[Rfam]
RNA sequence: CAAGGCUGCGGUCGCAGCCUUGAACCCGCGGUACCUGAUCCGGCCACGG
Number, nucleotide and partner (000 for none) at each position: 001c022002a021003a020004g019005g018006c017007u016008g015009c014010g000011g000012u000013c000014g009015c008016a007017g006018c005019c004020u003021u002022g001023a000024a000025c000026c049027c048028g047029c000030g045031g044032u043033a000034c000035c000036u000037g000038a000039u000040c000041c000042g000043g032044c031045c030046a000047c028048g027049g026
Background:
A member of the RNA family "L17-Actino-Proteobacteria ribosomal protein leader", 49 nucleotides long. It is annotated as a cis-regulatory leader. It is one of the family's seed sequences.